[Rfam]
RNA: Bacterial small signal recognition particle RNA
RNA sequence: GACGGCUCCCCGUGCGGCGUCAUCUUGUGAACUCCCCCAGGGCCGGAAGGCAGCAAGGGUAAGCGAGCUCUGGCGGGUGCACGGGGAGUCCUUCAU
Numbered sequence: 001g002a003c004g005g006c007u008c009c010c011c012g013u014g015c016g017g018c019g020u021c022a023u024c025u026u027g028u029g030a031a032c033u034c035c036c037c038c039a040g041g042g043c044c045g046g047a048a049g050g051c052a053g054c055a056a057g058g059g060u061a062a063g064c065g066a067g068c069u070c071u072g073g074c075g076g077g078u079g080c081a082c083g084g085g086g087a088g089u090c091c092u093u094c095a096u
Stems, first nucleotide, its partner, number of pairs: 004090011015077001018075005024067005034059003042051003